A member of the RNA family "mir-11 microRNA precursor family" from Clunio marinus, 78 nucleotides long. Its family is annotated with negative regulation of apoptotic process, RISC complex and cellular response to gamma radiation in the Gene Ontology. Clan: mir-6 clan. A reference for the family is Chen et al. (2010), "Next-generation small RNA sequencing for microRNAs profiling in the honey bee Apis mellifera", Insect Mol Biol.

[Rfam]
Nucleotides: 078
Stems, first nucleotide, its partner, number of pairs: 004075002009070009021058006029051003
Number, partner (000 for none) and nucleotide at each position: 001000u002000u003000u004075c005074c006000c007000a008000g009070c010069g011068a012067g013066a014065a015064c016063u017062c018000u019000u020000u021058c022057u023056g024055u025054g026053g027000c028000u029051g030050c031049c032000u033000u034000u035000c036000c037000u038000a039000u040000c041000a042000u043000u044000c045000a046000u047000a048000c049031g050030g051029c052000a053026u054025c055024a056023c057022a058021g059000u060000c061000u062017g063016a064015g065014u066013u067012c068011u069010u070009g071000c072000u073000u074005g075004g076000c077000g078000a